[Rfam]
RNA sequence: UUCUAAUAUUAUUUUCGAUGUUCAAGUUUAUGGACUUGUUCCAAUAAAGUAUUAGAUAUUAAAGAGGUUUAUUCCUUCUAUAAAAGGUAAAAAAUGUAUUAAUUUUAGUAUUAAUCUAGUAGAAAAUCGAAAGAAAUAUUAAAAU
Numbered sequence: 001u002u003c004u005a006a007u008a009u010u011a012u013u014u015u016c017g018a019u020g021u022u023c024a025a026g027u028u029u030a031u032g033g034a035c036u037u038g039u040u041c042c043a044a045u046a047a048a049g050u051a052u053u054a055g056a057u058a059u060u061a062a063a064g065a066g067g068u069u070u071a072u073u074c075c076u077u078c079u080a081u082a083a084a085a086g087g088u089a090a091a092a093a094a095u096g097u098a099u100u101a102a103u104u105u106u107a108g109u110a111u112u113a114a115u116c117u118a119g120u121a122g123a124a125a126a127u128c129g130a131a132a133g134a135a136a137u138a139u140u141a142a143a144a145u
Stems, first nucleotide, its partner, number of pairs: 003055007013047002020041001023038006078087002102145009115134002122128002
RNA: RT-14 RNA